Rfam assigns this 87-nucleotide RNA sequence from Gossypium gossypioides to the family "MIR7486 microRNA precursor family". Its family is annotated with miRNA-mediated post-transcriptional gene silencing and RISC complex in the Gene Ontology. It scores 72 bits against the family's covariance model. The organism belongs to Gossypium, within Eukaryota.
[Rfam]
RNA sequence: CACAUCAGCGCGCUUUGCUUACGUGGAUACAAAUUGCGCCUACGAGGACACGAUUUGCUGACACAUCAGCAAAACGCGUUGACGUGG
Numbered sequence: 001c002a003c004a005u006c007a008g009c010g011c012g013c014u015u016u017g018c019u020u021a022c023g024u025g026g027a028u029a030c031a032a033a034u035u036g037c038g039c040c041u042a043c044g045a046g047g048a049c050a051c052g053a054u055u056u057g058c059u060g061a062c063a064c065a066u067c068a069g070c071a072a073a074a075c076g077c078g079u080u081g082a083c084g085u086g087g
Stems, first nucleotide, its partner, number of pairs: 001086003005082008014073006021066001023064003030057007038049001040047002